[Rfam]
RNA sequence: AGCCAUUCAGUAUCGUAGCCAAUGAGGUUUAUCCGAGGCGCGAUUAUUGCUAAUUGAAAAAAGAACAGCCAUUGAUGCUCAAUGGCUAGAUCUGUUACUUCAUUGGAGAU
Numbered sequence: 001a002g003c004c005a006u007u008c009a010g011u012a013u014c015g016u017a018g019c020c021a022a023u024g025a026g027g028u029u030u031a032u033c034c035g036a037g038g039c040g041c042g043a044u045u046a047u048u049g050c051u052a053a054u055u056g057a058a059a060a061a062a063g064a065a066c067a068g069c070c071a072u073u074g075a076u077g078c079u080c081a082a083u084g085g086c087u088a089g090a091u092c093u094g095u096u097a098c099u100u101c102a103u104u105g106g107a108g109a110u
Stems, first nucleotide, its partner, number of pairs: 012044005018039003026034002068086008100109002
RNA: U4 spliceosomal RNA